[Rfam]
RNA sequence: AAUAAAUGAUGAAAAACUGUUUCGGUCCCAGCUGAUGUCCUGUGAUAACUUGCAUUUUUCUGAUGUU
Numbered sequence: 001a002a003u004a005a006a007u008g009a010u011g012a013a014a015a016a017c018u019g020u021u022u023c024g025g026u027c028c029c030a031g032c033u034g035a036u037g038u039c040c041u042g043u044g045a046u047a048a049c050u051u052g053c054a055u056u057u058u059u060c061u062g063a064u065g066u067u
Stems, first nucleotide, its partner, number of pairs: 001067004
About this RNA: A member of the RNA family "Small nucleolar RNA SNORD73" from Loxodonta africana, 67 nucleotides long. A reference for the family is Rebane et al. (1998), "A novel snoRNA (U73) is encoded within the introns of the human and mouse ribosomal protein S3a genes", Gene.